A member of the RNA family "RNase MRP" from Spathaspora sp. JA1, 598 nucleotides long. Gene Ontology terms of the family: rRNA processing, ribonuclease MRP activity and ribonuclease MRP complex. Rfam 15.1 lists 3,510 matches to the family in 2,315 species. Taxonomically the source falls in Spathaspora (Eukaryota, Opisthokonta, Fungi, Debaryomycetaceae).
RNA sequence: UUCAUGAUCAAAGAUUCGUCAUCGAAGCCUACACAAUGACAGACAGUCCCUAGGGGAUUGCCGGUCACUCAAAAGCUUUGGGGAAAGUCUCCUGUCACAACAGCGGAAACGCAAUGAUCUUUCAUAAAUUUCAUUGACAGUGGUUUACCUUCCUAGUUGUACCUUCUUAUACUUCCUUUGCGACGGGUAUUGCCAUGGAUUUCUUACAGUACAGGUCCCACAACACCUUGUGUGGAGUGACUCUUCUUGAUUCAGUGUUUUAGAUGCUAAUCCUUUUGGAUCUUGUCAUAUAAUGCUCUGGCAACUGAUGCACAAUGAGCCGAAGAUGCAUCGUCUCUAUAAUAUAUGGGUGUUGAUGUGCAGAACUGCUGUAGAGACCCAGGUACGGUGAUACUCGUUGGAUGUAUUAGAUUGGCAUUGGGAUUGUACGGUCUGUAUUUUGUUCCCAAGUGGGUUUAUUUAUCUCAUUUGGAUGGAUUCCGUUAUCAUUUUUCGGAAUGGUAAUGGAUAGUCGACAUUGGGAUCAUUUGGUCCUAAACGAUAGUCAUGACGAAUGAUCGCUAUGAUUAACGCAAUGGAGCUUAUUCUUGUAUCAUGG
Number, nucleotide and partner (000 for none) at each position: 001u000002u598003c597004a596005u595006g594007a593008u592009c590010a589011a588012a000013g000014a555015u554016u553017c552018g551019u550020c000021a000022u081023c080024g079025a078026a077027g076028c075029c000030u000031a000032c000033a000034c000035a000036a000037u000038g066039a065040c064041a000042g062043a000044c060045a059046g058047u057048c056049c055050c054051u000052a000053g000054g050055g049056g048057a047058u046059u045060g044061c000062c042063g000064g040065u039066c038067a000068c000069u000070c000071a000072a000073a000074a000075g028076c027077u026078u025079u024080g023081g022082g000083g000084a000085a583086a582087g581088u000089c580090u579091c578092c577093u000094g000095u000096c000097a000098c000099a000100a000101c000102a000103g112104c111105g110106g000107a000108a000109a000110c105111g104112c103113a000114a125115u124116g123117a122118u000119c000120u000121u000122u117123c116124a115125u114126a000127a000128a000129u000130u000131u000132c000133a000134u000135u000136g000137a000138c000139a000140g000141u000142g000143g000144u000145u000146u000147a000148c000149c000150u000151u000152c000153c000154u000155a000156g000157u000158u000159g000160u000161a000162c000163c000164u000165u000166c000167u000168u000169a000170u000171a000172c000173u000174u000175c000176c000177u000178u000179u000180g000181c000182g000183a000184c000185g000186g000187g000188u000189a000190u000191u000192g000193c000194c000195a000196u000197g000198g000199a000200u000201u000202u000203c000204u000205u000206a000207c000208a000209g000210u000211a000212c000213a000214g000215g000216u000217c000218c000219c000220a000221c000222a000223a000224c000225a000226c000227c000228u000229u000230g000231u000232g000233u000234g000235g000236a000237g000238u000239g000240a000241c000242u000243c000244u000245u000246c000247u000248u000249g000250a000251u000252u000253c000254a000255g000256u000257g000258u000259u000260u000261u000262a000263g000264a000265u000266g000267c000268u000269a000270a000271u000272c000273c000274u000275u000276u000277u000278g000279g000280a000281u000282c000283u000284u000285g000286u000287c000288a000289u000290a000291u000292a000293a000294u000295g000296c000297u000298c000299u000300g000301g000302c000303a000304a000305c000306u000307g000308a000309u000310g000311c000312a000313c000314a000315a000316u000317g000318a000319g000320c000321c000322g000323a000324a000325g000326a000327u000328g000329c000330a000331u000332c000333g000334u000335c000336u000337c000338u000339a000340u000341a000342a000343u000344a000345u000346a000347u000348g000349g000350g000351u000352g000353u000354u000355g000356a000357u000358g000359u000360g000361c000362a000363g000364a000365a000366c000367u000368g000369c000370u000371g000372u000373a000374g000375a000376g000377a000378c000379c000380c000381a000382g000383g000384u000385a000386c000387g000388g000389u000390g000391a000392u000393a000394c000395u000396c000397g000398u000399u000400g000401g000402a000403u000404g000405u000406a000407u000408u000409a000410g000411a000412u000413u000414g000415g000416c000417a000418u000419u000420g000421g000422g000423a000424u000425u000426g000427u000428a000429c000430g000431g000432u000433c000434u000435g000436u000437a000438u000439u000440u000441u526442g525443u000444u523445c522446c521447c520448a519449a518450g000451u000452g000453g513454g512455u511456u510457u000458a000459u000460u000461u000462a000463u000464c000465u507466c506467a505468u504469u000470u000471g000472g000473a000474u000475g000476g000477a000478u000479u000480c000481c000482g000483u000484u000485a000486u000487c000488a000489u000490u500491u000492u498493u497494c000495g000496g000497a493498a492499u000500g490501g000502u000503a000504a468505u467506g466507g465508a000509u000510a456511g455512u454513c453514g000515a000516c000517a000518u449519u448520g447521g446522g445523a444524u000525c442526a441527u000528u000529u000530g000531g000532u000533c000534c000535u000536a000537a000538a000539c000540g000541a000542u000543a000544g000545u000546c000547a000548u000549g000550a019551c018552g017553a016554a015555u014556g000557a567558u566559c565560g000561c000562u000563a000564u000565g559566a558567u557568u000569a000570a000571c000572g000573c000574a000575a000576u000577g092578g091579a090580g089581c087582u086583u085584a000585u000586u000587c000588u011589u010590g009591u000592a008593u007594c006595a005596u004597g003598g002

The family's RNA type in Rfam is ribozyme.